[Rfam]
RNA: ASpks TB sRNA
RNA sequence: CUUCAGCGAUCCCAGCCAGAGCGGCUGGUCCGCAGGACGCUGACGGCCGUACGUCGCCAGCACCGCCUGCGCCUC
Numbered sequence: 001c002u003u004c005a006g007c008g009a010u011c012c013c014a015g016c017c018a019g020a021g022c023g024g025c026u027g028g029u030c031c032g033c034a035g036g037a038c039g040c041u042g043a044c045g046g047c048c049g050u051a052c053g054u055c056g057c058c059a060g061c062a063c064c065g066c067c068u069g070c071g072c073c074u075c
Stems, first nucleotide, its partner, number of pairs: 014026004031071003038065002045058001047056001049054001